[Rfam]
RNA sequence: CGACCCCGCAGGGGAGAGUCCCGCACCGGGACGCCGAAGGAGCAACCUCCCCGGAAUCUCUCAGGCCCACGGACCCUGCGCGGUGA
Numbered sequence: 001c002g003a004c005c006c007c008g009c010a011g012g013g014g015a016g017a018g019u020c021c022c023g024c025a026c027c028g029g030g031a032c033g034c035c036g037a038a039g040g041a042g043c044a045a046c047c048u049c050c051c052c053g054g055a056a057u058c059u060c061u062c063a064g065g066c067c068c069a070c071g072g073a074c075c076c077u078g079c080g081c082g083g084u085g086a
Stems, first nucleotide, its partner, number of pairs: 007080007019031004033066003036062002040060003046054002
A member of the RNA family "Glycine riboswitch aptamer" from Kytococcus sp. HMSC28H12, 86 nucleotides long.
Pairs were carried over by alignment from the consensus structure.
This family represents the bacterial glycine riboswitch.
NCBI's taxonomy places the organism under Bacteria, Bacillati, Actinomycetota, Kytococcaceae, Kytococcus.